[Rfam]
RNA sequence: AACCGAAUACUGCUGAAUGCGCCCUCGGGCGCAGCGGGGGACCCACCGCGUGGGGUGAAUUCGGCCAGGACGCCGAUAGGGUGCCCUUCCACCCGAACCCGUCAGCUAACCCCGUAAGCAGUCGGAAGGCCCU
Dot-bracket structure: ..........((((...(((((......)))))((((((....((.....))(((.....((((........))))..((((........))))...))).........)))))).)))).............
RNA: c-di-AMP riboswitch aptamer (ydaO/yuaA leader)